Shown here is a 148-nucleotide RNA sequence from Ursus americanus, a member of the family "Small nucleolar RNA SNORA61". A search with the family's covariance model found it, with a score of 74 bits. It is annotated as an H/ACA-box small nucleolar RNA. Rfam's curators write: ACA61 is a member of the H/ACA class of snoRNA that guide the sites of modification of uridines to pseudouridines. Taxonomically the source falls in Ursus (Eukaryota, Deuterostomia, Teleostomi, Euteleostomi).

[Rfam]
RNA sequence: ACCUUCCGGUUCCCUUUCCCACUGGAUCUGAACACUGGUCUUGGUAGACAGGGGCAUACAUUUGGGGAAAGAAGAAAAAGGAACACCGAAGCUGGCCUCACAGUGCUUCUAGUCUGGUUUAUAGCUUAUGGCCUAGUUUCAAACAAGG
Numbered sequence: 001a002c003c004u005u006c007c008g009g010u011u012c013c014c015u016u017u018c019c020c021a022c023u024g025g026a027u028c029u030g031a032a033c034a035c036u037g038g039u040c041u042u043g044g045u046a047g048a049c050a051g052g053g054g055c056a057u058a059c060a061u062u063u064g065g066g067g068a069a070a071g072a073a074g075a076a077a078a079a080g081g082a083a084c085a086c087c088g089a090a091g092c093u094g095g096c097c098u099c100a101c102a103g104u105g106c107u108u109c110u111a112g113u114c115u116g117g118u119u120u121a122u123a124g125c126u127u128a129u130g131g132c133c134u135a136g137u138u139u140c141a142a143a144c145a146a147g148g
Base pairs, nucleotide, nucleotide: 003074004073005072006071019053020052021045022044023043025040026039027038028037092136093135094134095133097131098130110124